ALIL pseudoknot: a 115-nucleotide RNA sequence from Skermanella stibiiresistens.
Rfam classes the family as a cis-regulatory element.
It scores 83 bits against the family's covariance model.
The source organism's lineage runs through Bacteria, Pseudomonadati, Alphaproteobacteria, Azospirillaceae and Skermanella stibiiresistens.

[Rfam]
RNA sequence: CGCAGUUCGCCCAGGCGGAGCUCGACCGCCCGUUCAGGAAAUGAUCGCCUUCAUCGACGAGCAGCGCACCGUCCACGAGGUCCAGCCGAUCCGCGAGGUUCUGCCGAUCGUCCCG
Numbered sequence: 001c002g003c004a005g006u007u008c009g010c011c012c013a014g015g016c017g018g019a020g021c022u023c024g025a026c027c028g029c030c031c032g033u034u035c036a037g038g039a040a041a042u043g044a045u046c047g048c049c050u051u052c053a054u055c056g057a058c059g060a061g062c063a064g065c066g067c068a069c070c071g072u073c074c075a076c077g078a079g080g081u082c083c084a085g086c087c088g089a090u091c092c093g094c095g096a097g098g099u100u101c102u103g104c105c106g107a108u109c110g111u112c113c114c115g
Base pairs, nucleotide, nucleotide: 014030015029016028017027018026076115077114079112080111087110088109090107091106093104094103095102